This 98-nucleotide RNA from Hibiscus syriacus belongs to the Rfam family "MIR390 microRNA precursor family".
On this family, see Gustafson et al., Nucleic Acids Res 2005: "ASRP: the Arabidopsis Small RNA Project Database".
The family's consensus secondary structure was predicted with WAR.
RNA sequence: UAGAAGAAACUGUUAAGCUCAGGAGGGAUAGCGCCAUUGACGACAUGUAUUCUCGUCUUCAUUGACGCUAUCCAUCCUGAGUUUCAUCGCUUCUUCUU
Numbered sequence: 001u002a003g004a005a006g007a008a009a010c011u012g013u014u015a016a017g018c019u020c021a022g023g024a025g026g027g028a029u030a031g032c033g034c035c036a037u038u039g040a041c042g043a044c045a046u047g048u049a050u051u052c053u054c055g056u057c058u059u060c061a062u063u064g065a066c067g068c069u070a071u072c073c074a075u076c077c078u079g080a081g082u083u084u085c086a087u088c089g090c091u092u093c094u095u096c097u098u
Stems, first nucleotide, its partner, number of pairs: 010089001016083009026073008035064001

Record summary:
Its family is annotated with miRNA-mediated post-transcriptional gene silencing and RISC complex in the Gene Ontology. The source organism's lineage runs through Eukaryota, Viridiplantae, Embryophyta, Euphyllophyta and Hibiscus.